This 108-nucleotide RNA from Agitococcus lubricus belongs to the Rfam family "Alpha operon ribosome binding site". The organism belongs to Agitococcus, within Bacteria. A search with the family's covariance model found it, with a score of 43 bits. On this family, see Schlax et al., J Biol Chem 2001: "Translational repression of the Escherichia coli alpha operon mRNA: importance of an mRNA conformational switch and a ternary entrapment complex".
[Rfam]
RNA sequence: AAGCUGUGGCGAUACAAUCGCGCCCUUUCGCGGCUUGGCGGAUUAUCGCAACCGCUUUCUGUGGAGAAUAAGUGAAUGGCUCGUAUAGCCGGCGUUAAUAUUCCAGAU
Numbered sequence: 001a002a003g004c005u006g007u008g009g010c011g012a013u014a015c016a017a018u019c020g021c022g023c024c025c026u027u028u029c030g031c032g033g034c035u036u037g038g039c040g041g042a043u044u045a046u047c048g049c050a051a052c053c054g055c056u057u058u059c060u061g062u063g064g065a066g067a068a069u070a071a072g073u074g075a076a077u078g079g080c081u082c083g084u085a086u087a088g089c090c091g092g093c094g095u096u097a098a099u100a101u102u103c104c105a106g107a108u
Stems, first nucleotide, its partner, number of pairs: 004054001006052002009049005024092002029083002032081002039106001